[Rfam]
The record is a 129-nucleotide RNA sequence from Mycetocola lacteus, which matches "FMN riboswitch aptamer (RFN element)" in Rfam. It scores 100 bits against the family's covariance model. The base pairs follow the family's consensus structure, which is taken from published work. Its family is annotated with FMN binding in the Gene Ontology.
RNA sequence: UCGAGUGCUCCGGGGUCGGUGUAAUUCCGAACCGGCGGUGAUAGUCCGCGAACCGCACGGGAAACCGUGUGGCCGAAUCGGUGAAAUUCCGAUACCGACAGUUAGAGUCUGGAUGAGAGAAGCACGCUU
Numbered sequence: 001u002c003g004a005g006u007g008c009u010c011c012g013g014g015g016u017c018g019g020u021g022u023a024a025u026u027c028c029g030a031a032c033c034g035g036c037g038g039u040g041a042u043a044g045u046c047c048g049c050g051a052a053c054c055g056c057a058c059g060g061g062a063a064a065c066c067g068u069g070u071g072g073c074c075g076a077a078u079c080g081g082u083g084a085a086a087u088u089c090c091g092a093u094a095c096c097g098a099c100a101g102u103u104a105g106a107g108u109c110u111g112g113a114u115g116a117g118a119g120a121a122g123c124a125c126g127c128u129u
Stems, first nucleotide, its partner, number of pairs: 003127001005125005010119001017029003031108002033097002035049004044095002053072002077093005099111003